A member of the RNA family "mir-1744 microRNA precursor family" from Pavo cristatus, 76 nucleotides long. The source organism's lineage runs through Eukaryota, Eumetazoa, Galliformes, Phasianidae and Pavo.

RNA sequence: AGGACCCAGUGCUCCUCUGUUGAACUCAAAAGCAGAACCUUGUUGUUGACUUCAACAGGAGCAAGACUCCUGUUUU
Numbered sequence: 001a002g003g004a005c006c007c008a009g010u011g012c013u014c015c016u017c018u019g020u021u022g023a024a025c026u027c028a029a030a031a032g033c034a035g036a037a038c039c040u041u042g043u044u045g046u047u048g049a050c051u052u053c054a055a056c057a058g059g060a061g062c063a064a065g066a067c068u069c070c071u072g073u074u075u076u
Stems, first nucleotide, its partner, number of pairs: 002074002005072001008068003013063001015061003018057007026049004031044003